This 76-nucleotide sequence from Candidatus Izimoplasma sp. HR2 belongs to the Rfam family "c-di-GMP-I riboswitch aptamer".
Nucleotides: 076
Base pairs, nucleotide, nucleotide: 012037013036017032018031019030020029021028022027040070041069042068043067047066048065049062050061051060
Number, partner (000 for none) and nucleotide at each position: 001000a002000a003000c004000u005000g006000a007000u008000a009000a010000a011000g012037g013036c014000a015000a016000g017032c018031a019030u020029a021028a022027g023000g024000a025000a026000a027022c028021u029020u030019a031018u032017g033000u034000a035000c036013g037012c038000a039000a040070a041069g042068c043067u044000u045000u046000a047066g048065g049062g050061c051060c052000u053000g054000u055000a056000a057000a058000a059000u060051g061050g062049u063000a064000g065048c066047c067043a068042g069041c070040u071000g072000u073000c074000a075000a076000a
The family's consensus secondary structure is taken from published work.